[Rfam]
RNA sequence: GCUGAGGAGUGAUGACAGUAAAAGGCCGAAUUGCAGUGCUCCCCGAAGCAGUGAGCUCUCCUUGGAGGCACCGUGACAAAGUCUCCUGAAGCGAAUCACGAGUCUGACCUCAGC
Numbered sequence: 001g002c003u004g005a006g007g008a009g010u011g012a013u014g015a016c017a018g019u020a021a022a023a024g025g026c027c028g029a030a031u032u033g034c035a036g037u038g039c040u041c042c043c044c045g046a047a048g049c050a051g052u053g054a055g056c057u058c059u060c061c062u063u064g065g066a067g068g069c070a071c072c073g074u075g076a077c078a079a080a081g082u083c084u085c086c087u088g089a090a091g092c093g094a095a096u097c098a099c100g101a102g103u104c105u106g107a108c109c110u111c112a113g114c
Base pairs, nucleotide, nucleotide: 001114002113003112004111005110006109007108014104015103016102025034026033036099037098038097042093043091047087048086051071052070057065058064073084075082